Shown here is a 97-nucleotide RNA sequence from Ramlibacter tataouinensis, a member of the family "Glycine riboswitch aptamer". It scores 44 bits against the family's covariance model. NCBI's taxonomy places the organism under Bacteria, Pseudomonadota, Burkholderiales, Comamonadaceae, Ramlibacter.

RNA sequence: UCCCUCGCGUCAGGAGAGCGUUCCCGGUAGUCGAGGGAACCGCCGAAGGCGCAGGCGCAUAGCCGAACGCUCAGGCACCCAGGACUGACAAAACGCC
Numbered sequence: 001u002c003c004c005u006c007g008c009g010u011c012a013g014g015a016g017a018g019c020g021u022u023c024c025c026g027g028u029a030g031u032c033g034a035g036g037g038a039a040c041c042g043c044c045g046a047a048g049g050c051g052c053a054g055g056c057g058c059a060u061a062g063c064c065g066a067a068c069g070c071u072c073a074g075g076c077a078c079c080c081a082g083g084a085c086u087g088a089c090a091a092a093a094c095g096c097c
Stems, first nucleotide, its partner, number of pairs: 009089005020040006042076003045072002049070003054064002